[Rfam]
RNA sequence: UCUGAAGGCAGGUAAGCCACUGACUAACGCACACUGCGCCUGUUCCCCGCUCCACUGUGCGUGUGACAGCGGCUAACCAGCUUUUGGAUAUACCUCUA
Number, nucleotide and partner (000 for none) at each position: 001u000002c000003u000004g000005a084006a083007g082008g081009c080010a000011g078012g077013u000014a000015a074016g073017c072018c071019a000020c069021u068022g067023a000024c065025u063026a062027a000028c061029g060030c059031a058032c057033a056034c000035u054036g053037c000038g000039c000040c000041u000042g000043u000044u000045c000046c000047c000048c000049g000050c000051u000052c000053c036054a035055c000056u033057g032058u031059g030060c029061g028062u026063g025064u000065g024066a000067c022068a021069g020070c000071g018072g017073c016074u015075a000076a000077c012078c011079a000080g009081c008082u007083u006084u005085u000086g000087g000088a000089u000090a000091u000092a000093c000094c000095u000096c000097u000098a000
A member of the RNA family "mir-210 microRNA precursor family" from Hemibagrus wyckioides, 98 nucleotides long. Lineage of the source: Eukaryota > Eumetazoa > Bilateria > Osteoglossocephalai > Hemibagrus. The family has 26 seed sequences and 790 matches in Rfam 15.1. For this family Rfam cites "Kaposi's sarcoma-associated herpesvirus expresses an array of viral microRNAs in latently infected cells" (Cai et al., Proc Natl Acad Sci U S A, 2005).